[Rfam]
The family of this 215-nucleotide RNA from Allosphingosinicella flava is "permuted transfer-messenger RNA".
Gene Ontology term of the family: RNA catabolic process.
On this family, see Williams and Bartel, RNA 1996: "Phylogenetic analysis of tmRNA secondary structure".
RNA sequence: GACGAUAAAGUGCGGCGUGCAAUAGACGCAGCGGACCCGGGGGCGGUACCCGGCGGCUCCACCACAAUCGACCUCAUCGAGGCCGGUUCUGACGGGGCCGAACUAGGAUCGACGUGUGUUGAAAAGCGCUGUUUUCGUCCGGGCUGAGUAACCCGUUCAAGGCUCAAACACACACAAGUGCCAACGAUAACGAGGCUCUUGCUAUUGCUGCGUAA
Numbered sequence: 001g002a003c004g005a006u007a008a009a010g011u012g013c014g015g016c017g018u019g020c021a022a023u024a025g026a027c028g029c030a031g032c033g034g035a036c037c038c039g040g041g042g043g044c045g046g047u048a049c050c051c052g053g054c055g056g057c058u059c060c061a062c063c064a065c066a067a068u069c070g071a072c073c074u075c076a077u078c079g080a081g082g083c084c085g086g087u088u089c090u091g092a093c094g095g096g097g098c099c100g101a102a103c104u105a106g107g108a109u110c111g112a113c114g115u116g117u118g119u120u121g122a123a124a125a126g127c128g129c130u131g132u133u134u135u136c137g138u139c140c141g142g143g144c145u146g147a148g149u150a151a152c153c154c155g156u157u158c159a160a161g162g163c164u165c166a167a168a169c170a171c172a173c174a175c176a177a178g179u180g181c182c183a184a185c186g187a188u189a190a191c192g193a194g195g196c197u198c199u200u201g202c203u204a205u206u207g208c209u210g211c212g213u214a215a
Base pairs, nucleotide, nucleotide: 001139002138003137004136005135015129016128017127018126027118028117029116031115032114033113037053038052039051040050041049054100055099056098057097058096059095060094140155141154142153143152
By type it is a non-coding RNA gene. Bacterial tmRNA, also known as 10Sa RNA or SsrA, is named for its dual tRNA and mRNA-like properties. The match comes from Rfam's covariance-model search (138 bits). Pairs were carried over by alignment from the consensus structure, which is taken from published work.